[Rfam]
RNA sequence: CUCUGGGUCCAUUAGCCGGCUCAGGGCAAGAAGAG
Numbered sequence: 001c002u003c004u005g006g007g008u009c010c011a012u013u014a015g016c017c018g019g020c021u022c023a024g025g026g027c028a029a030g031a032a033g034a035g
Base pairs, nucleotide, nucleotide: 001026002025003024004023005022006021007020008019